RNA sequence: UGCCGGCUCUCCAACAGCCGGGGUUACUGAAGAGGCACACCUUCAUUGCCGGAAGUGCGGUUGGGUUAUUCCCUCCAAUCCAUGGCAGACAAAGCCGAAUCCUAGCCUUUGCGGGCUUUGAUUCAAAUUCGCGCAUCGAGCGCAUGCAUGGUU
Number, nucleotide and partner (000 for none) at each position: 001u023002g000003c021004c020005g019006g018007c017008u016009c000010u000011c000012c000013a000014a000015c000016a008017g007018c006019c005020g004021g003022g000023g001024u000025u000026a000027c000028u000029g000030a000031a000032g000033a000034g050035g049036c048037a047038c000039a000040c000041c000042u000043u000044c000045a000046u000047u037048g036049c035050c034051g000052g000053a000054a000055g000056u000057g134058c133059g132060g000061u000062u000063g000064g000065g000066u000067u000068a000069u000070u000071c000072c000073c000074u000075c000076c000077a000078a000079u000080c000081c000082a000083u000084g096085g095086c000087a000088g000089a000090c000091a000092a000093a000094g000095c085096c084097g000098a000099a000100u000101c000102c000103u000104a118105g117106c000107c115108u114109u000110u000111g000112c000113g000114g108115g107116c000117u105118u104119u000120g000121a000122u000123u000124c000125a000126a000127a000128u000129u000130c000131g000132c059133g058134c057135a000136u000137c000138g000139a000140g000141c000142g000143c000144a000145u000146g000147c000148a000149u000150g000151g000152u000153u000